The record is a 96-nucleotide sequence from Ruminococcus sp. CAG:177, which matches "Gut-1 RNA" in Rfam. Pairs were carried over by alignment from the consensus structure, which is taken from published work. The family has 38 seed sequences and 51 matches in Rfam 15.1.
RNA sequence: CAGUGAAAUUCGUUCCUUUGGAACAAGUGAAAUAUCUUUGAUGUGAAAUAUUUGCUCCGCAAAUGUGAAAUACGCCUGCGGCGUGUGAAAGCGCUG
Numbered sequence: 001c002a003g004u005g006a007a008a009u010u011c012g013u014u015c016c017u018u019u020g021g022a023a024c025a026a027g028u029g030a031a032a033u034a035u036c037u038u039u040g041a042u043g044u045g046a047a048a049u050a051u052u053u054g055c056u057c058c059g060c061a062a063a064u065g066u067g068a069a070a071u072a073c074g075c076c077u078g079c080g081g082c083g084u085g086u087g088a089a090a091g092c093g094c095u096g
Base pairs, nucleotide, nucleotide: 008028009027010026012024013023014022015021048066049065050064051063052062053061070086071085072084073083074082075081076080
Record summary: Lineage of the source: Bacteria > Bacillati > Bacillota > Eubacteriales > Ruminococcus.